[Rfam]
RNA sequence: UAACCGAAAAGGCAAACCAUUCGAAAGGAUGGGACGCAAAGCCUUCGACCUAAGUUUAUCACCACUGUAUGUGGUGGUAGAUAAGGUGGCAGGGUUGCCGAA
Numbered sequence: 001u002a003a004c005c006g007a008a009a010a011g012g013c014a015a016a017c018c019a020u021u022c023g024a025a026a027g028g029a030u031g032g033g034a035c036g037c038a039a040a041g042c043c044u045u046c047g048a049c050c051u052a053a054g055u056u057u058a059u060c061a062c063c064a065c066u067g068u069a070u071g072u073g074g075u076g077g078u079a080g081a082u083a084a085g086g087u088g089g090c091a092g093g094g095u096u097g098c099c100g101a102a
Stems, first nucleotide, its partner, number of pairs: 012037002017032006040096004045092001047090001048087003055081011
The record is a 102-nucleotide RNA sequence from bacterium HR37, which matches "c-di-GMP-I riboswitch aptamer" in Rfam. From the family's description: GEMM was predicted in a large-scale screen for bacterial structured RNA regulatory elements. Genes associated with GEMM are involved in a diverse array of functions, including chemotaxis regulation, signal transduction, secretion and chitin. Rfam links the family to the GO term cyclic-di-GMP binding. A search with the family's covariance model found it, with a score of 72 bits.